Shown here is a 95-nucleotide RNA from Rosa chinensis, a member of the family "MIR535 microRNA precursor family".
The literature on the family includes a 2010 paper in Nucleic Acids Res by Zeng et al., "Conservation and divergence of microRNAs and their functions in Euphorbiaceous plants".
Pairs were carried over by alignment from the consensus structure, which was predicted with RNAalifold.
It scores 76 bits against the family's covariance model.
Its family is annotated with miRNA-mediated post-transcriptional gene silencing and RISC complex in the Gene Ontology.
RNA sequence: UCGAUUGUAUGACGAUGAGAGGGAGCACGCUCGUAAACACUCAUUACUGUUUCAUGGAUGCUGACAAGCGUGCUCUCUCUCAUUGUCAAACAAAU
Numbered sequence: 001u002c003g004a005u006u007g008u009a010u011g012a013c014g015a016u017g018a019g020a021g022g023g024a025g026c027a028c029g030c031u032c033g034u035a036a037a038c039a040c041u042c043a044u045u046a047c048u049g050u051u052u053c054a055u056g057g058a059u060g061c062u063g064a065c066a067a068g069c070g071u072g073c074u075c076u077c078u079c080u081c082a083u084u085g086u087c088a089a090a091c092a093a094a095u
Base pairs, nucleotide, nucleotide: 010088011087012086013085014084016082017081020078021077023075025073026072027071028070029069030068031067033065034064
Dot-bracket structure: .........(((((.((..((.(.(((((((.((.............................)).))))))).).))..)).))))).......